A member of the RNA family "azaaromatic riboswitch aptamer (yjdF RNA)" from Clostridium tetanomorphum, 107 nucleotides long. It scores 92 bits against the family's covariance model.

[Rfam]
RNA sequence: UUAUAUGUGAAUAAAAACACAGUUCGGUUGGUAGUCCGAACCUAACUAUAAAAAAUAGUUAGCAGUAACCUGCCCUCCUGGGGUUGUCCUUUUUACAUAAGUAGUUU
Numbered sequence: 001u002u003a004u005a006u007g008u009g010a011a012u013a014a015a016a017a018c019a020c021a022g023u024u025c026g027g028u029u030g031g032u033a034g035u036c037c038g039a040a041c042c043u044a045a046c047u048a049u050a051a052a053a054a055a056u057a058g059u060u061a062g063c064a065g066u067a068a069c070c071u072g073c074c075c076u077c078c079u080g081g082g083g084u085u086g087u088c089c090u091u092u093u094u095a096c097a098u099a100a101g102u103a104g105u106u107u
Stems, first nucleotide, its partner, number of pairs: 004099008022041006042062008072084004

Lineage of the source: Bacteria > Bacillati > Bacillota > Clostridiaceae > Clostridium.